This 46-nucleotide sequence from Rosistilla oblonga belongs to the Rfam family "Acido-Lenti-1 RNA".
Taxonomically the source falls in Rosistilla (Bacteria, Pseudomonadati, Planctomycetota, Pirellulaceae).
The match comes from Rfam's covariance-model search (48 bits).
Rfam classes the family as a small RNA.
The base pairs follow the family's consensus structure, which is taken from published work.
RNA sequence: CCUGGGACUUGCGUCCCAGGCUGUCGCAUUUCGUCGCUAUGCGACU
Number, nucleotide and partner (000 for none) at each position: 001c020002c019003u018004g017005g016006g015007a014008c013009u000010u000011g000012c000013g008014u007015c006016c005017c004018a003019g002020g001021c000022u000023g000024u000025c000026g000027c000028a000029u000030u000031u000032c000033g045034u044035c043036g042037c041038u000039a000040u000041g037042c036043g035044a034045c033046u000